RNA sequence: AUGGAAGUGCUUUGGCAAGAAUCAAGCCAUAGCUCUUGAGGGAAAAAAAAAGCAUGGAGGGGUUUUGGAUUUGGAGAGUGAGAGAUUUUCUCUUCUCACCUCCAUCUCCAAAAUUCAACAGUUUGUCUGUGCUUAGCUAUUAGCUUUUGCCUUUUUCCAGUAAAUGAGUACUUUAUGAAGAAGAAGAAGAAGAAGAAGAUGGUUUCAAUGUAGCAGAGGUUUCUAGCUAAUGCAUGGCAAACCGGCAAGUCACAAAACGGCAAUGGACUCGAUGCAAACGAGUCUU
Numbered sequence: 001a002u003g004g005a006a007g008u009g010c011u012u013u014g015g016c017a018a019g020a021a022u023c024a025a026g027c028c029a030u031a032g033c034u035c036u037u038g039a040g041g042g043a044a045a046a047a048a049a050a051a052g053c054a055u056g057g058a059g060g061g062g063u064u065u066u067g068g069a070u071u072u073g074g075a076g077a078g079u080g081a082g083a084g085a086u087u088u089u090c091u092c093u094u095c096u097c098a099c100c101u102c103c104a105u106c107u108c109c110a111a112a113a114u115u116c117a118a119c120a121g122u123u124u125g126u127c128u129g130u131g132c133u134u135a136g137c138u139a140u141u142a143g144c145u146u147u148u149g150c151c152u153u154u155u156u157c158c159a160g161u162a163a164a165u166g167a168g169u170a171c172u173u174u175a176u177g178a179a180g181a182a183g184a185a186g187a188a189g190a191a192g193a194a195g196a197a198g199a200u201g202g203u204u205u206c207a208a209u210g211u212a213g214c215a216g217a218g219g220u221u222u223c224u225a226g227c228u229a230a231u232g233c234a235u236g237g238c239a240a241a242c243c244g245g246c247a248a249g250u251c252a253c254a255a256a257a258c259g260g261c262a263a264u265g266g267a268c269u270c271g272a273u274g275c276a277a278a279c280g281a282g283u284c285u286u
Base pairs, nucleotide, nucleotide: 121242122241123240124239125238126237141230266284267283268282269281270280
Early nodulin 40: a 286-nucleotide RNA from Acer yangbiense. It is annotated as a non-coding RNA gene.